[Rfam]
RNA sequence: GGGGUCGAUUUGGUUUCGACUUCGUGCAUUGAGCCAGGGGAAGCGUGCCGGUGAAGGCGAUCGACCACCGUAAGCGUCGACGCAACCCUAUAAGCGCCGAGAACACUCAGCGCGACUACGCCCUCGCUGCCUAAGCAGCGACCGCGUGUCUGUCGGCCUAGGUUUGUCUCUGACCUAGCAACCGGCAUCGACUAAAGAGACUUGCUGCACGGCCGGGUUGCUCGGGCCGUGCGGGACUCCUUAGAGCAACUGGGCUCAUCAUCCGGACUGGUUCGCAAGAUCCGGAGGGCCGAGUAGAGAUAACUGCGAACUGCGCACGGAGAAGCCCUGGCGAGGUCGCGAAGGACCCGGGUUCAAUUCCCGGCGGCUCCACAG
Numbered sequence: 001g002g003g004g005u006c007g008a009u010u011u012g013g014u015u016u017c018g019a020c021u022u023c024g025u026g027c028a029u030u031g032a033g034c035c036a037g038g039g040g041a042a043g044c045g046u047g048c049c050g051g052u053g054a055a056g057g058c059g060a061u062c063g064a065c066c067a068c069c070g071u072a073a074g075c076g077u078c079g080a081c082g083c084a085a086c087c088c089u090a091u092a093a094g095c096g097c098c099g100a101g102a103a104c105a106c107u108c109a110g111c112g113c114g115a116c117u118a119c120g121c122c123c124u125c126g127c128u129g130c131c132u133a134a135g136c137a138g139c140g141a142c143c144g145c146g147u148g149u150c151u152g153u154c155g156g157c158c159u160a161g162g163u164u165u166g167u168c169u170c171u172g173a174c175c176u177a178g179c180a181a182c183c184g185g186c187a188u189c190g191a192c193u194a195a196a197g198a199g200a201c202u203u204g205c206u207g208c209a210c211g212g213c214c215g216g217g218u219u220g221c222u223c224g225g226g227c228c229g230u231g232c233g234g235g236a237c238u239c240c241u242u243a244g245a246g247c248a249a250c251u252g253g254g255c256u257c258a259u260c261a262u263c264c265g266g267a268c269u270g271g272u273u274c275g276c277a278a279g280a281u282c283c284g285g286a287g288g289g290c291c292g293a294g295u296a297g298a299g300a301u302a303a304c305u306g307c308g309a310a311c312u313g314c315g316c317a318c319g320g321a322g323a324a325g326c327c328c329u330g331g332c333g334a335g336g337u338c339g340c341g342a343a344g345g346a347c348c349c350g351g352g353u354u355c356a357a358u359u360c361c362c363g364g365c366g367g368c369u370c371c372a373c374a375g
Base pairs, nucleotide, nucleotide: 001371002370003369004368005367006366007365020344021343022342023341024340025339026338029335033332034331035330036329037328038327039326044319045318046317047316048315049070050069051068052067053066057083058082059081061079124141125140126139127138128137129136130135151187152186153185154184155183156182158178159177160176161175162174163173164172166201167200168199169198171197205234206233207232208231209230210229211228212227213226216251217250218249219248220247221246253291254290255289256288257287259285260284270311272309273308348364349363350362351361352360
The family of this 375-nucleotide RNA from Corynebacterium sp. ED61 is "transfer-messenger RNA". Lineage of the source: Bacteria > Bacillati > Mycobacteriales > Corynebacteriaceae > Corynebacterium. A search with the family's covariance model found it, with a score of 147 bits. Rfam's curators write: Bacterial tmRNA, also known as 10Sa RNA or SsrA, is named for its dual tRNA and mRNA-like properties. Its role is to liberate the mRNA from a stalled ribosome. Its family is annotated with RNA catabolic process in the Gene Ontology.